[Rfam]
RNA sequence: CGACCCUGUGCGGGAGAGACCCCGACCAUGGUCGGGGCGCCGAAGGAGCAACCUCCCCGGAAUCUCUCAGGCACCCUGUACCGCACGGACGAG
Number, nucleotide and partner (000 for none) at each position: 001c000002g000003a000004c000005c000006c088007u087008g086009u085010g084011c083012g082013g081014g000015a000016g000017a000018g000019a000020c037021c036022c035023c034024g000025a000026c000027c000028a000029u000030g000031g000032u000033c000034g023035g022036g021037g020038c000039g072040c071041c070042g068043a067044a000045g000046g066047a065048g064049c000050a000051a000052c060053c059054u000055c000056c000057c000058c000059g053060g052061a000062a000063u000064c048065u047066c046067u043068c042069a000070g041071g040072c039073a000074c000075c000076c000077u000078g000079u000080a000081c013082c012083g011084c010085a009086c008087g007088g006089a000090c000091g000092a000093g000